[Rfam]
A member of the RNA family "T-box leader" from Xylanibacillus composti, 282 nucleotides long.

RNA sequence: AGGAAAGCGAUGACUGGGACGAGUACAUGGCUGCAGCCGCCACAGCGAGUCAGGGAUUGGUGGAAGCCUGAUGAGAAGCGGGUCAUGGAAGAUCACCCAGGAGUGUCGCCUUGAAACGUGCCCGUCACGGAGUAAGGGCAGCCGGGUCAUGCCGUUAUCCAUGUCAGAGUGAUUGAAGGCUUCGCAGCAGCGUUAGCGUUGUGGCUUGCAGCAGGCAAGGCGCACAAGACGCCAGAGCCUCGAUCAAUAGGGUGGUACCGCGAGCAGCCUCUCGUCCCUAUG
Numbered sequence: 001a002g003g004a005a006a007g008c009g010a011u012g013a014c015u016g017g018g019a020c021g022a023g024u025a026c027a028u029g030g031c032u033g034c035a036g037c038c039g040c041c042a043c044a045g046c047g048a049g050u051c052a053g054g055g056a057u058u059g060g061u062g063g064a065a066g067c068c069u070g071a072u073g074a075g076a077a078g079c080g081g082g083u084c085a086u087g088g089a090a091g092a093u094c095a096c097c098c099a100g101g102a103g104u105g106u107c108g109c110c111u112u113g114a115a116a117c118g119u120g121c122c123c124g125u126c127a128c129g130g131a132g133u134a135a136g137g138g139c140a141g142c143c144g145g146g147u148c149a150u151g152c153c154g155u156u157a158u159c160c161a162u163g164u165c166a167g168a169g170u171g172a173u174u175g176a177a178g179g180c181u182u183c184g185c186a187g188c189a190g191c192g193u194u195a196g197c198g199u200u201g202u203g204g205c206u207u208g209c210a211g212c213a214g215g216c217a218a219g220g221c222g223c224a225c226a227a228g229a230c231g232c233c234a235g236a237g238c239c240u241c242g243a244u245c246a247a248u249a250g251g252g253u254g255g256u257a258c259c260g261c262g263a264g265c266a267g268c269c270u271c272u273c274g275u276c277c278c279u280a281u282g
Base pairs, nucleotide, nucleotide: 007104008103015099016098017097018096026087027086028085029084030083031082038075040073049072050071051070052069053068054067106141108139109138110137111136112135143154144153145152172244173243174242175241176240178238249279250278251277252276260275261274262273263272264271
By type it is a cis-regulatory leader. Rfam describes the family as follows. Uncharged tRNA acts as the effector for transcription antitermination of genes in the T-box leader family.